A member of the RNA family "Guanidine-II riboswitch aptamer (mini-ykkC)" from Megalodesulfovibrio gigas, 49 nucleotides long. The organism belongs to Megalodesulfovibrio gigas, within Bacteria. The match comes from Rfam's covariance-model search (45 bits). Rfam describes the family as follows. Simpler in structure and has fewer highly conserved nucleotide positions than the ykkC-yxkD leader. Despite this each of its two stem-loop structures directly bind free guanidine. Therefore, mini-ykkC RNA motif represents a distinct class of guanidine-sensing RNAs. Its crystal structure was also determined. On this family, see Sherlock et al., Biochemistry 2017: "Biochemical Validation of a Second Guanidine Riboswitch Class in Bacteria".
RNA sequence: ACGGCGGGACGACCCGCCGUUCUUGCAUUUUGUUCGGGGGACGACCCCC
Numbered sequence: 001a002c003g004g005c006g007g008g009a010c011g012a013c014c015c016g017c018c019g020u021u022c023u024u025g026c027a028u029u030u031u032g033u034u035c036g037g038g039g040g041a042c043g044a045c046c047c048c049c
Stems, first nucleotide, its partner, number of pairs: 001020008036049005